[Rfam]
Nucleotides: 183
Stems, first nucleotide, its partner, number of pairs: 002181002005178011017167003033156004038151003042146002058129003062125004069119001072118007084106002089102004
Number, partner (000 for none) and nucleotide at each position: 001000g002181a003180a004000c005178c006177c007176c008175u009174g010173c011172u012171g013170u014169g015168u016000g017167c018166g019165u020000g021000g022000u023000a024000a025000a026000c027000c028000g029000a030000u031000g032000a033156u034155u035154u036153u037000u038151u039150g040149a041000g042146c043145c044000a045000a046000c047000a048000c049000u050000a051000a052000c053000a054000c055000a056000u057000a058129g059128g060127g061000a062125g063124c064123c065122c066000g067000g068000a069119c070000u071000c072118u073117g074116a075115u076114u077113g078112u079000g080000g081000c082000a083000u084106a085105u086000a087000a088000g089102c090101c091100u092099c093000c094000a095000a096000a097000g098000a099092g100091g101090g102089g103000a104000c105085a106084u107000a108000u109000a110000a111000a112078g113077c114076a115075a116074u117073c118072a119069g120000g121000a122065g123064g124063g125062c126000a127060c128059c129058c130000a131000c132000c133000u134000g135000u136000u137000g138000a139000g140000a141000g142000g143000c144000a145043g146042g147000a148000c149040u150039c151038a152000a153036a154035a155034a156033g157000a158000u159000c160000g161000g162000a163000c164000c165019a166018c167017g168015g169014c170013a171012u172011g173010g174009u175008g176007g177006g178005g179000u180003u181002u182000u183000u
Background:
This 183-nucleotide RNA from Koleobacter methoxysyntrophicus belongs to the Rfam family "6S / SsrS RNA". On this family, see Chen et al., Molecular Cell 2017: "6S RNA Mimics B-Form DNA to Regulate Escherichia coli RNA Polymerase". The organism belongs to Koleobacter, within Bacteria.